[Rfam]
RNA sequence: AUUUAUAGCGUUCUCCGAGCCAUAGUGCCUAAUGCGUAAUGUGAUGGUGUUAUGGCCGUAUAAGGGUUAAUCGGGAAACGGGUUAGCCUCCCUUUGGAAAGGAGAACAUUCCACCUGUUA
Numbered sequence: 001a002u003u004u005a006u007a008g009c010g011u012u013c014u015c016c017g018a019g020c021c022a023u024a025g026u027g028c029c030u031a032a033u034g035c036g037u038a039a040u041g042u043g044a045u046g047g048u049g050u051u052a053u054g055g056c057c058g059u060a061u062a063a064g065g066g067u068u069a070a071u072c073g074g075g076a077a078a079c080g081g082g083u084u085a086g087c088c089u090c091c092c093u094u095u096g097g098a099a100a101g102g103a104g105a106a107c108a109u110u111c112c113a114c115c116u117g118u119u120a
Stems, first nucleotide, its partner, number of pairs: 004113001011106006019056011033043004064089009074079001090097002

The family of this 120-nucleotide RNA sequence from Desulforamulus ruminis is "Molybdenum/Tungsten riboswitch aptamer (Moco RNA motif)". Pairs were carried over by alignment from the consensus structure, which is taken from published work. A search with the family's covariance model found it, with a score of 76 bits. The organism belongs to Desulforamulus ruminis, within Bacteria.